[Rfam]
RNA: msiK RNA
Organism: Crystallibacter crystallopoietes
RNA sequence: UGAAUACCCGCUUCACUACGGAUCGUCGGGCACGUACCUGCCCGUGAAGGGAAACAACA
Numbered sequence: 001u002g003a004a005u006a007c008c009c010g011c012u013u014c015a016c017u018a019c020g021g022a023u024c025g026u027c028g029g030g031c032a033c034g035u036a037c038c039u040g041c042c043c044g045u046g047a048a049g050g051g052a053a054a055c056a057a058c059a
Base pairs, nucleotide, nucleotide: 009051011049012048013047014046015045027044028043029042030041031040032039